This 49-nucleotide sequence belongs to the Rfam family "chrB-b RNA". Pairs were carried over by alignment from the consensus structure, which is taken from published work. By type it is a cis-regulatory element. The sequence is in the family's curated seed alignment.
RNA sequence: CGGGGAAAUGCAGACUCCCCGUCAGACGGUUUUUCCGUCCAAGCUCUGC
Numbered sequence: 001c002g003g004g005g006a007a008a009u010g011c012a013g014a015c016u017c018c019c020c021g022u023c024a025g026a027c028g029g030u031u032u033u034u035c036c037g038u039c040c041a042a043g044c045u046c047u048g049c
Stems, first nucleotide, its partner, number of pairs: 001021006010049005025039005